[Rfam]
RNA sequence: UCCACACACUAAUGUAAGUCGCUUUGGACAAAAGCGUCUGCUAAAUGACUAUUU
Numbered sequence: 001u002c003c004a005c006a007c008a009c010u011a012a013u014g015u016a017a018g019u020c021g022c023u024u025u026g027g028a029c030a031a032a033a034g035c036g037u038c039u040g041c042u043a044a045a046u047g048a049c050u051a052u053u054u
Stems, first nucleotide, its partner, number of pairs: 013043001014041003020036006
The record is a 54-nucleotide RNA sequence from Muraenolepis orangiensis, which matches "UnaL2 LINE 3' element" in Rfam. The family's RNA type in Rfam is cis-regulatory element. The organism belongs to Muraenolepis, within Eukaryota. A search with the family's covariance model found it, with a score of 66 bits. The base pairs follow the family's consensus structure, which is taken from published work.